[Rfam]
RNA sequence: UUGGUUCCGGUUCACGUUCGUGACGUGCGGGCGACCCGGGCC
Numbered sequence: 001u002u003g004g005u006u007c008c009g010g011u012u013c014a015c016g017u018u019c020g021u022g023a024c025g026u027g028c029g030g031g032c033g034a035c036c037c038g039g040g041c042c
Stems, first nucleotide, its partner, number of pairs: 003042003007039004015033008
RNA: L31-Actinobacteria ribosomal protein leader